RNA sequence: GAGCUAUGAAGAAGAUUUUAAAGCAAUACGAGAUUCCACUGAAGACAUAAGAUCCAACUCUGAGCUCACUGCCAUA
Numbered sequence: 001g002a003g004c005u006a007u008g009a010a011g012a013a014g015a016u017u018u019u020a021a022a023g024c025a026a027u028a029c030g031a032g033a034u035u036c037c038a039c040u041g042a043a044g045a046c047a048u049a050a051g052a053u054c055c056a057a058c059u060c061u062g063a064g065c066u067c068a069c070u071g072c073c074a075u076a
Stems, first nucleotide, its partner, number of pairs: 001067004
RNA: Small nucleolar RNA SNORD19
Organism: Steatornis caripensis